A member of the RNA family "mir-345 microRNA precursor family" from Aotus nancymaae, 92 nucleotides long. A reference for the family is Ahn et al. (2010), "MicroRNA transcriptome in the newborn mouse ovaries determined by massive parallel sequencing", Mol Hum Reprod. It scores 80 bits against the family's covariance model.
[Rfam]
RNA sequence: CCCAAACCCCAGGUCAGCUGACUCCAAGUCCCAGGGCUUGUGAUGGCUGGUGGACCCUCAACGAGGGGUCUGGAGGCCUGGGUUUGAAUUAU
Numbered sequence: 001c002c003c004a005a006a007c008c009c010c011a012g013g014u015c016a017g018c019u020g021a022c023u024c025c026a027a028g029u030c031c032c033a034g035g036g037c038u039u040g041u042g043a044u045g046g047c048u049g050g051u052g053g054a055c056c057c058u059c060a061a062c063g064a065g066g067g068g069u070c071u072g073g074a075g076g077c078c079u080g081g082g083u084u085u086g087a088a089u090u091a092u
Stems, first nucleotide, its partner, number of pairs: 008082006015075001018072001020070006028062002033058002036055001038053002